Rfam assigns this 86-nucleotide RNA from Sphaeramia orbicularis to the family "mir-135 microRNA precursor family". Gene Ontology terms of the family: RISC complex and gene silencing by miRNA. It scores 67 bits against the family's covariance model. The organism belongs to Sphaeramia, within Eukaryota.
RNA sequence: ACAACUGUGUCUUAUGGCUUUCUAUUCCUAUGUGAGUUCUUUCAGGCAUGUCAUGUAGGGUUCAAAGCCAUUGGAUACACAGUGGA
Numbered sequence: 001a002c003a004a005c006u007g008u009g010u011c012u013u014a015u016g017g018c019u020u021u022c023u024a025u026u027c028c029u030a031u032g033u034g035a036g037u038u039c040u041u042u043c044a045g046g047c048a049u050g051u052c053a054u055g056u057a058g059g060g061u062u063c064a065a066a067g068c069c070a071u072u073g074g075a076u077a078c079a080c081a082g083u084g085g086a
Stems, first nucleotide, its partner, number of pairs: 002085001004083003007078006014071008024062001026060010